[Rfam]
RNA sequence: UUUCAUGAGAGUUUGAUCCUGGCUCAGGACAAACGCUGGCGGCGUGCCUAAUACAUGCAAGUCGAGCGAAGAGAAAAGAUGCUUGCAUCUUCUCUCUUAGCGGCGGACGGGUGAGUAACACGUGGGUAACCUGCCCAUAAGAGAGGGAUAACAGUCGGAAACGACUGCUAAUACCCCAUAGACGCUAUGUUCGCAUGAACAAAGUGGGAAAGACGGUGCAAGCUGUCGCUUAUGGAUGGACCCGCGGCGUAUUAGCUAGUUGGUGAGGUAACGGCUCACCAAGGCAGUGAUACGUAGCCGACCUGAGAGGGUGAUCGGCCACAUUGGGACUGAGACACGGCCCAAACUCCUACGGGAGGCAGCAGUAGGGAAUCUUCGGCAAUGGACGAAAGUCUGACCGAGCAACGCCGCGUGAGUGAAGAAGGUUUUCGGAUCGUAAAACUCUGUUGUUAGAAAAGAACACCUUAUAGAGUAACUGCUAUAAGAUUGACGGUAUCUAACCAGAAAGCCACGGCUAACUACGUGCCAGCAGCCGCGGUAAUACGUAGGUGGCAAGCGUUGUCCGGAUUUAUUG
Numbered sequence: 001u002u003u004c005a006u007g008a009g010a011g012u013u014u015g016a017u018c019c020u021g022g023c024u025c026a027g028g029a030c031a032a033a034c035g036c037u038g039g040c041g042g043c044g045u046g047c048c049u050a051a052u053a054c055a056u057g058c059a060a061g062u063c064g065a066g067c068g069a070a071g072a073g074a075a076a077a078g079a080u081g082c083u084u085g086c087a088u089c090u091u092c093u094c095u096c097u098u099a100g101c102g103g104c105g106g107a108c109g110g111g112u113g114a115g116u117a118a119c120a121c122g123u124g125g126g127u128a129a130c131c132u133g134c135c136c137a138u139a140a141g142a143g144a145g146g147g148a149u150a151a152c153a154g155u156c157g158g159a160a161a162c163g164a165c166u167g168c169u170a171a172u173a174c175c176c177c178a179u180a181g182a183c184g185c186u187a188u189g190u191u192c193g194c195a196u197g198a199a200c201a202a203a204g205u206g207g208g209a210a211a212g213a214c215g216g217u218g219c220a221a222g223c224u225g226u227c228g229c230u231u232a233u234g235g236a237u238g239g240a241c242c243c244g245c246g247g248c249g250u251a252u253u254a255g256c257u258a259g260u261u262g263g264u265g266a267g268g269u270a271a272c273g274g275c276u277c278a279c280c281a282a283g284g285c286a287g288u289g290a291u292a293c294g295u296a297g298c299c300g301a302c303c304u305g306a307g308a309g310g311g312u313g314a315u316c317g318g319c320c321a322c323a324u325u326g327g328g329a330c331u332g333a334g335a336c337a338c339g340g341c342c343c344a345a346a347c348u349c350c351u352a353c354g355g356g357a358g359g360c361a362g363c364a365g366u367a368g369g370g371a372a373u374c375u376u377c378g379g380c381a382a383u384g385g386a387c388g389a390a391a392g393u394c395u396g397a398c399c400g401a402g403c404a405a406c407g408c409c410g411c412g413u414g415a416g417u418g419a420a421g422a423a424g425g426u427u428u429u430c431g432g433a434u435c436g437u438a439a440a441a442c443u444c445u446g447u448u449g450u451u452a453g454a455a456a457a458g459a460a461c462a463c464c465u466u467a468u469a470g471a472g473u474a475a476c477u478g479c480u481a482u483a484a485g486a487u488u489g490a491c492g493g494u495a496u497c498u499a500a501c502c503a504g505a506a507a508g509c510c511a512c513g514g515c516u517a518a519c520u521a522c523g524u525g526c527c528a529g530c531a532g533c534c535g536c537g538g539u540a541a542u543a544c545g546u547a548g549g550u551g552g553c554a555a556g557c558g559u560u561g562u563c564c565g566g567a568u569u570u571a572u573u574g
Base pairs, nucleotide, nucleotide: 009025010024011023012022013021027564028563029562030561032560033559034558035557036556037555039411040410041409042408043407044406045404046403047369052367053366054365056364057363058362061104062103063102066101067100069097076091077090078089079088080087081086111322112321113320121246122245123244124243125242126241127240130239131238135235136234137233138232139231140230141229143177145175146174152167153166154165155164156163157162183206184205185204186203188201189200190199191198192197212227213226214225215224216223248294249293250292255285256284257283260282261281262280263279264278265277266276267275297319298318299317300316301312302311303310304309324345325344326343327342328341347358348357349356350355375401377400378399379398383396384395385394386393387392414444415443416442417441424435425434426433427432448505449501450500451499452498453497454496458491464485465484466483467482468481469480508553509552510551511550512549519548520547521546522545523544529536530535